[Rfam]
Shown here is a 189-nucleotide sequence from Marinomonas transparens, a member of the family "Manganese Mn2+ riboswitch aptamer (yybP-ykoY)".
Rfam 15.1 lists 1,126 matches to the family in 1,062 species.
Rfam links the family to the GO term manganese ion binding.
Rfam describes the family as follows. This RNA was originally discovered in E. coli during a large scale screen and was named SraF. The family was later found to exist upstream of related families of protein genes in many bacteria, including the the yybP and ykoK genes in B. subtilis.
RNA sequence: CUACCACUCUUAGGGGAGUAAUCUUCUUUGCACUUUGCAGAGAUUCUUUGUCAACAUAAUUGGGCCUCAAGCUCGUGGCAAAGAAGUCCGAAUUCGAUUAAAUCGAUGGGAUUGAUGAGACUUAAGACAAUAACUUGGCUCAGGUGGGCUCAGGUUCGUUGUCUUUUGUUUUACCGCCCACCUAGGACC
Number, nucleotide and partner (000 for none) at each position: 001c000002u000003a000004c000005c000006a000007c000008u000009c000010u000011u000012a000013g000014g000015g000016g000017a000018g000019u000020a000021a000022u000023c000024u000025u000026c042027u041028u040029u000030g000031c000032a000033c000034u000035u000036u000037g000038c000039a000040g028041a027042g026043a000044u085045u084046c083047u082048u081049u080050g079051u078052c077053a076054a000055c000056a000057u000058a000059a000060u000061u075062g074063g073064g072065c071066c000067u000068c000069a000070a000071g065072c064073u063074c062075g061076u053077g052078g051079c050080a049081a048082a047083g046084a045085a044086g188087u187088c186089c185090g000091a183092a000093u000094u000095c000096g000097a000098u000099u000100a000101a000102a000103u000104c000105g000106a000107u000108g000109g000110g000111a000112u000113u000114g000115a000116u000117g000118a000119g000120a000121c000122u000123u000124a000125a000126g000127a000128c000129a000130a000131u000132a000133a000134c000135u000136u000137g000138g000139c000140u000141c000142a000143g000144g000145u000146g000147g000148g000149c000150u000151c000152a000153g000154g000155u000156u000157c000158g000159u000160u000161g000162u000163c000164u000165u000166u000167u000168g000169u000170u000171u000172u000173a000174c000175c000176g000177c000178c000179c000180a000181c000182c000183u091184a000185g089186g088187a087188c086189c000